[Rfam]
Source information: The family of this 92-nucleotide sequence from Orthoflavivirus japonicum is "Flavivirus 3' UTR cis-acting replication element (CRE)". The organism belongs to Orthoflavivirus japonicum, within Viruses. The base pairs follow the family's consensus structure, which is taken from published work. Rfam's curators write: This family represents the Flavivirus 3'-SL cis-acting replication element (CRE).
RNA sequence: CUGGGAAUAGACUAGGAGAUCUUCUGCUCUAUCUCAACAUCAGCUACUAGGCACAGAGCGCCGAAGUAUGUAGCUGGUGGUGAGGAAGAACA
Numbered sequence: 001c002u003g004g005g006a007a008u009a010g011a012c013u014a015g016g017a018g019a020u021c022u023u024c025u026g027c028u029c030u031a032u033c034u035c036a037a038c039a040u041c042a043g044c045u046a047c048u049a050g051g052c053a054c055a056g057a058g059c060g061c062c063g064a065a066g067u068a069u070g071u072a073g074c075u076g077g078u079g080g081u082g083a084g085g086a087a088g089a090a091c092a
Base pairs, nucleotide, nucleotide: 001015002014003013004012018091021088022087023086035082036081038079039078040077041076042075044073045072046071050062051061052060